About this RNA: The family of this 81-nucleotide RNA from Streptomyces griseoviridis is "Streptomyces RNA 6106". The match comes from Rfam's covariance-model search (67 bits). About the family: Identified by deep sequencing of transcriptome at the end of exponential growth phase. By type it is a small RNA. The base pairs follow the family's consensus structure. For this family Rfam cites "Deep sequencing-based identification of small non-coding RNAs in Streptomyces coelicolor" (Vockenhuber et al., RNA Biol, 2011).
RNA sequence: ACACCGCCGAGCGGUGUCAACGGCCUCGAACAGGCCACGGACGGGGGUGGUGCCGUGUCGGCGCGGCACCACCCCCGCACC
Dot-bracket structure: (((((((...)))))))(....((((.....))).)..)..((((((((((((.(((....))).))))))))))))....